[Rfam]
RNA sequence: UCAGUUCCGCGAGAGCCACCCUCCUCCCAGGCUCUUGCAGAUCGCCCGGCGGCACUCCUCCUCCCAGCCGCGGGGCACCUCCCAAGACGCCUGCCGGUCCUCCCCCGGCAGGCGUUUUCG
Numbered sequence: 001u002c003a004g005u006u007c008c009g010c011g012a013g014a015g016c017c018a019c020c021c022u023c024c025u026c027c028c029a030g031g032c033u034c035u036u037g038c039a040g041a042u043c044g045c046c047c048g049g050c051g052g053c054a055c056u057c058c059u060c061c062u063c064c065c066a067g068c069c070g071c072g073g074g075g076c077a078c079c080u081c082c083c084a085a086g087a088c089g090c091c092u093g094c095c096g097g098u099c100c101u102c103c104c105c106c107g108g109c110a111g112g113c114g115u116u117u118u119c120g
Stems, first nucleotide, its partner, number of pairs: 007040001009038001011036007044076004049071005087115011
Rfam assigns this 120-nucleotide RNA from Aureimonas sp. Leaf460 to the family "Alphaproteobacterial ar14". The pairing is the family consensus, mapped onto this sequence. The family has 118 seed sequences and 784 matches in Rfam 15.1. Rfam describes the family as follows. Smr14C2 was renamed NfeR1 (Nodule Formation Efficiency RNA) highly expressed in salt stress and during the symbiotic interaction on legume roots. It scores 80 bits against the family's covariance model.